This 85-nucleotide sequence from Capsella rubella belongs to the Rfam family "mir-156 microRNA precursor family". Pairs were carried over by alignment from the consensus structure, which was predicted with PFOLD. A search with the family's covariance model found it, with a score of 79 bits. NCBI's taxonomy places the organism under Eukaryota, Spermatophyta, eudicotyledons, Gunneridae, Capsella. Rfam links the family to the GO terms miRNA-mediated post-transcriptional gene silencing and RISC complex. Rfam describes the family as follows. This family represents the plant microRNA (miRNA) precursor mir-156. For this family Rfam cites "microRNAs: tiny regulators with great potential" (Ambros, Cell, 2001).

RNA sequence: GUGACAGAAGAGAGUGAGCACAAAUGGUGCCUUUCUUGCAUAGGUUUAUGCUCGAAGCUAUGUGUGCUUACUCUCUAUCUGUCAC
Numbered sequence: 001g002u003g004a005c006a007g008a009a010g011a012g013a014g015u016g017a018g019c020a021c022a023a024a025u026g027g028u029g030c031c032u033u034u035c036u037u038g039c040a041u042a043g044g045u046u047u048a049u050g051c052u053c054g055a056a057g058c059u060a061u062g063u064g065u066g067c068u069u070a071c072u073c074u075c076u077a078u079c080u081g082u083c084a085c
Stems, first nucleotide, its partner, number of pairs: 001085008010075012024061002